[Rfam]
RNA sequence: GGUGGCGUGGCAGAGCGGCCUAAUGCACUCGCCUUGAAAGCGAGAGGCGGGUAACACCGUCCGGGGGUUCAAAUCCCUCCGCCACCG
Numbered sequence: 001g002g003u004g005g006c007g008u009g010g011c012a013g014a015g016c017g018g019c020c021u022a023a024u025g026c027a028c029u030c031g032c033c034u035u036g037a038a039a040g041c042g043a044g045a046g047g048c049g050g051g052u053a054a055c056a057c058c059g060u061c062c063g064g065g066g067g068u069u070c071a072a073a074u075c076c077c078u079c080c081g082c083c084a085c086c087g
Stems, first nucleotide, its partner, number of pairs: 001086007010026003028044005063079005

tRNA: an 87-nucleotide sequence from Mycobacterium triviale. A search with the family's covariance model found it, with a score of 58 bits. Rfam 15.1 lists 5,335,975 matches to the family in 14,413 species. The family's consensus secondary structure is taken from published work.